This 169-nucleotide RNA from Bacillus sp. FJAT-27916 belongs to the Rfam family "Group II catalytic intron D1-D4-3". Pairs were carried over by alignment from the consensus structure.
RNA sequence: GCUAUUGUGAGGUAGUGGCUGAAAGAAGCUGGACGCAAACUCCUGACGGACGAACAGAAACUAGAUACAAGGCUGGCUUAGGUCGGAUGAGCCUGCACAACAAGACGAAGUCCAAUACUGCCCGAAACCUAAUGGAGGAAAGUGUAAACUAGGCAUUCCAGCCGUUAUC
Numbered sequence: 001g002c003u004a005u006u007g008u009g010a011g012g013u014a015g016u017g018g019c020u021g022a023a024a025g026a027a028g029c030u031g032g033a034c035g036c037a038a039a040c041u042c043c044u045g046a047c048g049g050a051c052g053a054a055c056a057g058a059a060a061c062u063a064g065a066u067a068c069a070a071g072g073c074u075g076g077c078u079u080a081g082g083u084c085g086g087a088u089g090a091g092c093c094u095g096c097a098c099a100a101c102a103a104g105a106c107g108a109a110g111u112c113c114a115a116u117a118c119u120g121c122c123c124g125a126a127a128c129c130u131a132a133u134g135g136a137g138g139a140a141a142g143u144g145u146a147a148a149c150u151a152g153g154c155a156u157u158c159c160a161g162c163c164g165u166u167a168u169c
Stems, first nucleotide, its partner, number of pairs: 001016006028169001030167003035162002041155001042153004062146002065143001066141001073137001078132006085113004091106001093104002